[Rfam]
RNA sequence: CAGCAUGUUGCCAAGGGCUGUGGAUGGUUGUGGCCGUGGAUUCUCCAAAUACUUGUGAGCAACAUGGAGAGACUUUGAGAGCACCGAACCCACAGGUGCCGCUCGCUUUUCCAAUGUUU
Numbered sequence: 001c002a003g004c005a006u007g008u009u010g011c012c013a014a015g016g017g018c019u020g021u022g023g024a025u026g027g028u029u030g031u032g033g034c035c036g037u038g039g040a041u042u043c044u045c046c047a048a049a050u051a052c053u054u055g056u057g058a059g060c061a062a063c064a065u066g067g068a069g070a071g072a073c074u075u076u077g078a079g080a081g082c083a084c085c086g087a088a089c090c091c092a093c094a095g096g097u098g099c100c101g102c103u104c105g106c107u108u109u110u111c112c113a114a115u116g117u118u119u
Stems, first nucleotide, its partner, number of pairs: 011039002016035007066112006081099005
This 119-nucleotide RNA sequence from Oryctolagus cuniculus belongs to the Rfam family "Small nucleolar RNA SNORA44". The organism belongs to Oryctolagus, within Eukaryota. Rfam links the family to the GO terms RNA processing and nucleolus. A reference for the family is Huttenhofer et al. (2001), "RNomics: an experimental approach that identifies 201 candidates for novel, small, non-messenger RNAs in mouse", EMBO J. Rfam's curators write: ACA44 is a member of the H/ACA class of snoRNA that guide the sites of modification of uridines to pseudouridines. Clan: SNORA44 clan.